[Rfam]
RNA sequence: UGCAUCAAUCUAGGGGUGCCUGUAAAUCGGGCUGAGAUUAUACCCAUACAACCUGAUCCGGAUAAUGCCGGCGUAGGGAAAUAGAUAUGCCGAUCG
Numbered sequence: 001u002g003c004a005u006c007a008a009u010c011u012a013g014g015g016g017u018g019c020c021u022g023u024a025a026a027u028c029g030g031g032c033u034g035a036g037a038u039u040a041u042a043c044c045c046a047u048a049c050a051a052c053c054u055g056a057u058c059c060g061g062a063u064a065a066u067g068c069c070g071g072c073g074u075a076g077g078g079a080a081a082u083a084g085a086u087a088u089g090c091c092g093a094u095c096g
Stems, first nucleotide, its partner, number of pairs: 006084001008082002011046001013045003017040001018032005052077004058071004
Rfam assigns this 96-nucleotide sequence from Indolivaga macrotermitis to the family "TPP riboswitch aptamer (THI element)". Vitamin B(1) in its active form thiamin pyrophosphate (TPP) is an essential coenzyme that is synthesised by coupling of pyrimidine and thiazole moieties in bacteria. The previously detected thiamin-regulatory element, thi box was extended, resulting in a new, highly conserved RNA secondary structure, the THI element, which is widely distributed in eubacteria and also occurs in some archaea. A search with the family's covariance model found it, with a score of 70 bits. Pairs were carried over by alignment from the consensus structure, which is taken from published work. The organism belongs to Indolivaga, within Bacteria.